Shown here is an 80-nucleotide RNA from Xanthomonas oryzae, a member of the family "Xanthomonas sRNA sX9".
The family's consensus secondary structure was predicted with RNAalifold.
A search with the family's covariance model found it, with a score of 44 bits.
The family's RNA type in Rfam is small RNA.

RNA sequence: GUACACCACUCGUCCACUGCGGUUUCCCGUGCGCCGGCUACGGCCACCUGACGGCUGCCCGCCACGUCUUGUUGUUAGCG
Numbered sequence: 001g002u003a004c005a006c007c008a009c010u011c012g013u014c015c016a017c018u019g020c021g022g023u024u025u026c027c028c029g030u031g032c033g034c035c036g037g038c039u040a041c042g043g044c045c046a047c048c049u050g051a052c053g054g055c056u057g058c059c060c061g062c063c064a065c066g067u068c069u070u071g072u073u074g075u076u077a078g079c080g
Base pairs, nucleotide, nucleotide: 001015003013004012020036021035022034023033026031048078049077050076051075052074053073054072